This 102-nucleotide RNA sequence from Natranaerovirga hydrolytica belongs to the Rfam family "Purine riboswitch aptamer". Rfam links the family to the GO term purine nucleobase biosynthetic process. The base pairs follow the family's consensus structure, which is taken from published work. The organism belongs to Natranaerovirga, within Bacteria.
RNA sequence: AAAAAUACUUUUAUAUGUACUCGUAUACUUUUAGAGAUAAGGUCUAAAUGUUUCUACCGAAUCGCCGUAAAUGAUUCGACUACGGGUGUUAAUAUGCUUAUA
Dot-bracket structure: .................((((((((....((((((.......)))))).........(((((((.......)))))))..))))))))..............